Small nucleolar RNA Z278: a 114-nucleotide RNA sequence from Panicum virgatum. It scores 61 bits against the family's covariance model. The family's consensus secondary structure was predicted with PFOLD. Lineage of the source: Eukaryota > Streptophyta > Tracheophyta > Liliopsida > Panicum sect. Hiantes.
RNA sequence: ACCAAUGAUGUGUUGUCCACAAUUCGAGGUGUAGUUGACUUCCAAGUCCCUGCUUCAGGGAGAACCUACUUGGGGUCCUACAUUCAAAUGAGAUGCCUGGGCAUUUCCUGAGGU
Number, nucleotide and partner (000 for none) at each position: 001a114002c113003c112004a000005a000006u000007g000008a000009u000010g000011u000012g000013u000014u000015g000016u000017c000018c000019a000020c000021a000022a000023u000024u000025c000026g000027a000028g000029g000030u000031g000032u000033a000034g000035u000036u000037g000038a000039c000040u000041u000042c000043c000044a000045a000046g000047u000048c060049c059050c058051u057052g056053c000054u000055u000056c052057a051058g050059g049060g048061a000062g000063a000064a000065c000066c000067u000068a000069c000070u000071u000072g000073g000074g000075g000076u000077c000078c000079u000080a000081c000082a000083u000084u000085c000086a000087a000088a000089u000090g000091a000092g000093a000094u000095g000096c000097c000098u000099g000100g000101g000102c000103a000104u000105u000106u000107c000108c000109u000110g000111a000112g003113g002114u001

A reference for the family is Chen et al. (2003), "The high diversity of snoRNAs in plants: identification and comparative study of 120 snoRNA genes from Oryza sativa", Nucleic Acids Res.
Rfam 15.1 lists 1,130 matches to the family in 214 species.
By type it is a C/D-box small nucleolar RNA.